[Rfam]
RNA sequence: GUCUUGGGUUAGUUUUGCUGGUUUGCAUCCAGCUUUAUAAGUGGUUGCUGUGCAAAUCCAUGCAAAACUGACUAAAGCA
Numbered sequence: 001g002u003c004u005u006g007g008g009u010u011a012g013u014u015u016u017g018c019u020g021g022u023u024u025g026c027a028u029c030c031a032g033c034u035u036u037a038u039a040a041g042u043g044g045u046u047g048c049u050g051u052g053c054a055a056a057u058c059c060a061u062g063c064a065a066a067a068c069u070g071a072c073u074a075a076a077g078c079a
Stems, first nucleotide, its partner, number of pairs: 003077003007073012020059002022056007031049003
Dot-bracket structure: ..(((.((((((((((((.(((((((((..(((.............)))))))))).))..)))))))))))).)))..

The record is a 79-nucleotide RNA sequence from Polypterus senegalus, which matches "mir-19 microRNA precursor family" in Rfam. Clan: mir-19 clan. The literature on the family includes a 2002 paper in Genes Dev by Mourelatos et al., "miRNPs: a novel class of ribonucleoproteins containing numerous microRNAs". Rfam links the family to the GO terms miRNA-mediated post-transcriptional gene silencing and RISC complex. Lineage of the source: Eukaryota > Bilateria > Deuterostomia > Chordata > Polypterus. It scores 83 bits against the family's covariance model.